Shown here is a 42-nucleotide sequence from Lederbergia galactosidilytica, a member of the family "Ribosomal protein L19 leader".

RNA sequence: ACGAUGUUCCGCUGCAAGGAUGUAAAUUUGCAUGAGCUUCGG
Numbered sequence: 001a002c003g004a005u006g007u008u009c010c011g012c013u014g015c016a017a018g019g020a021u022g023u024a025a026a027u028u029u030g031c032a033u034g035a036g037c038u039u040c041g042g
Stems, first nucleotide, its partner, number of pairs: 003040002006037004013032006
The literature on the family includes a 1994 paper in Prog Nucleic Acid Res Mol Biol by Zengel and Lindahl, "Diverse mechanisms for regulating ribosomal protein synthesis in Escherichia coli". Gene Ontology term of the family: regulation of gene expression. The source organism's lineage runs through Bacteria, Bacillota, Bacilli, Caryophanales and Lederbergia. This family is a putative r-protein leader autoregulatory structure found in B. subtilis and other low-GC Gram-positive bacteria. It is located in the 5' untranslated regions of mRNAs encoding ribosomal protein L19 (rplS). It is annotated as a cis-regulatory leader.